The record is an 80-nucleotide sequence from Ophiophagus hannah, which matches "mir-181 microRNA precursor family" in Rfam. The base pairs follow the family's consensus structure, which was predicted with PFOLD. A reference for the family is Ambros (2001), "microRNAs: tiny regulators with great potential", Cell. The organism belongs to Ophiophagus, within Eukaryota. The family has 157 seed sequences and 3,490 matches in Rfam 15.1.
RNA sequence: AGUUCUCGGGGAACAUUCAACGCUGUCGGUGAGUUUUGUCAAUGAGGUCAAACCAUCGACUGUUGAGUGUACCCUGCGCU
Dot-bracket structure: ....(.((.....(((((((((..(((((((.((((.............)))))))))))))))))))).....)).)..
Numbered sequence: 001a002g003u004u005c006u007c008g009g010g011g012a013a014c015a016u017u018c019a020a021c022g023c024u025g026u027c028g029g030u031g032a033g034u035u036u037u038g039u040c041a042a043u044g045a046g047g048u049c050a051a052a053c054c055a056u057c058g059a060c061u062g063u064u065g066a067g068u069g070u071a072c073c074c075u076g077c078g079c080u
Stems, first nucleotide, its partner, number of pairs: 005078001007076002014069009025060007033053004